[Rfam]
RNA: Glycine riboswitch aptamer
RNA sequence: GCGUUCCUAGCUGGAGAGAGAUGCAGGGCACGGCGGUGUGCCCCAUCCACCGAAGGAGCAAGCCCCACGCAUGGAAGGUGCGGGUGAAUCUCUCAGGUAAAGCGGACAGCAGGGCAGGA
Numbered sequence: 001g002c003g004u005u006c007c008u009a010g011c012u013g014g015a016g017a018g019a020g021a022u023g024c025a026g027g028g029c030a031c032g033g034c035g036g037u038g039u040g041c042c043c044c045a046u047c048c049a050c051c052g053a054a055g056g057a058g059c060a061a062g063c064c065c066c067a068c069g070c071a072u073g074g075a076a077g078g079u080g081c082g083g084g085u086g087a088a089u090c091u092c093u094c095a096g097g098u099a100a101a102g103c104g105g106a107c108a109g110c111a112g113g114g115c116a117g118g119a
Stems, first nucleotide, its partner, number of pairs: 006114003010110004020047004049098003052094002056092003062085004